[Rfam]
RNA sequence: AAUAUUUUAGGGCAAACUAUUCGAAAGGAUAGGACGCAAAGCCUAGGGUCUAAGGUUGGAAAUUCAAAGAUUUUCUACUAUGAUCGCCUGGUUGCCAAC
Numbered sequence: 001a002a003u004a005u006u007u008u009a010g011g012g013c014a015a016a017c018u019a020u021u022c023g024a025a026a027g028g029a030u031a032g033g034a035c036g037c038a039a040a041g042c043c044u045a046g047g048g049u050c051u052a053a054g055g056u057u058g059g060a061a062a063u064u065c066a067a068a069g070a071u072u073u074u075c076u077a078c079u080a081u082g083a084u085c086g087c088c089u090g091g092u093u094g095c096c097a098a099c
Stems, first nucleotide, its partner, number of pairs: 012037002017032006040093004045089003048084003055078002058075007
The family of this 99-nucleotide sequence from Caldibacillus thermoamylovorans is "c-di-GMP-I riboswitch aptamer". Its family is annotated with cyclic-di-GMP binding in the Gene Ontology.